[Rfam]
RNA sequence: UGGAUGCACCCUGAUUGAGAGUCCCCCUGGCUAGAAGCUAGGGGAUUUUUUU
Numbered sequence: 001u002g003g004a005u006g007c008a009c010c011c012u013g014a015u016u017g018a019g020a021g022u023c024c025c026c027c028u029g030g031c032u033a034g035a036a037g038c039u040a041g042g043g044g045a046u047u048u049u050u051u052u
Stems, first nucleotide, its partner, number of pairs: 001008001024044009

This 52-nucleotide sequence from Oxynema acuminatum belongs to the Rfam family "Nitrogen stress-induced RNA 1". Rfam classes the family as a small RNA. On this family, see Ionescu et al., J Mol Biol 2010: "Heterocyst-specific transcription of NsiR1, a non-coding RNA encoded in a tandem array of direct repeats in cyanobacteria". Lineage of the source: Bacteria > Cyanophyceae > Oscillatoriaceae > Oxynema > Oxynema acuminatum.